Shown here is a 213-nucleotide RNA from Synaphobranchus kaupii, a member of the family "Small nucleolar RNA U3".
The source organism's lineage runs through Eukaryota, Craniata, Elopocephalai, Elopocephala and Synaphobranchus.
Rfam links the family to the GO terms nucleolus and RNA processing.
For this family Rfam cites "The uRNA database" (Zwieb, Nucleic Acids Res, 1997).
Pairs were carried over by alignment from the consensus structure, which is taken from published work.
Rfam's curators write: Small nucleolar RNAs (snoRNAs) are involved in the processing and modification of rRNA in the nucleolus.
It scores 148 bits against the family's covariance model.
Rfam classes the family as a C/D-box small nucleolar RNA.
RNA sequence: AAGACUAUACUUUCAGGGAUCAUUUCUAUAGUUUGCGACUGAGAAAUGUGUUUCAAAAGUGUUUGGUCUCACUGCCCACGAUGAAGAAGCAGUGCAUUCUCUUCUGAGCGUGAAGCGGAUAGAGAAUAUUGAUUUUUAUCAAAUUUUCUCUGUCAUUGAUGAUCGUUCUGCUUCUGUAAAGAAUGUGGAGGGAGAGUAUGCGUUCUGAGUGGU
Number, nucleotide and partner (000 for none) at each position: 001a000002a040003g039004a000005c037006u035007a034008u000009a032010c031011u030012u000013u000014c000015a027016g026017g025018g024019a000020u000021c000022a000023u000024u018025u017026c016027u015028a000029u000030a011031g010032u009033u000034u007035g006036c000037g005038a000039c003040u002041g000042a000043g000044a000045a000046a000047u000048g000049u000050g063051u000052u000053u000054c061055a000056a000057a000058a000059g000060u000061g054062u000063u050064u000065g000066g000067u000068c000069u000070c000071a000072c000073u000074g000075c000076c212077c211078a210079c209080g000081a000082u000083g000084a000085a000086g000087a000088a000089g000090c000091a000092g000093u000094g201095c200096a199097u198098u000099c196100u195101c194102u193103u192104c191105u190106g000107a000108g166109c165110g164111u000112g000113a000114a000115g000116c000117g000118g154119a153120u152121a151122g000123a000124g148125a147126a146127u000128a000129u142130u141131g140132a139133u000134u000135u000136u000137u000138a000139u132140c131141a130142a129143a000144u000145u000146u126147u125148c124149u000150c000151u121152g120153u119154c118155a000156u000157u000158g000159a000160u000161g000162a000163u000164c110165g109166u108167u000168c000169u187170g186171c000172u183173u182174c181175u180176g000177u000178a000179a000180a175181g174182a173183a172184u000185g000186u170187g169188g000189a000190g105191g104192g103193a102194g101195a100196g099197u000198a097199u096200g095201c094202g000203u000204u000205c000206u000207g000208a000209g079210u078211g077212g076213u000